[Rfam]
RNA sequence: GCGUCCCGCCUCGUGAUCGUCUUCUCACCCUUCACUUGGCGGGCGGAAUGAGCGAAGCCCCCGCGAGGACGUGACUCGCGGGGGCUUCGU
Numbered sequence: 001g002c003g004u005c006c007c008g009c010c011u012c013g014u015g016a017u018c019g020u021c022u023u024c025u026c027a028c029c030c031u032u033c034a035c036u037u038g039g040c041g042g043g044c045g046g047a048a049u050g051a052g053c054g055a056a057g058c059c060c061c062c063g064c065g066a067g068g069a070c071g072u073g074a075c076u077c078g079c080g081g082g083g084g085c086u087u088c089g090u
Stems, first nucleotide, its partner, number of pairs: 002045002005043006013035004019029001052090016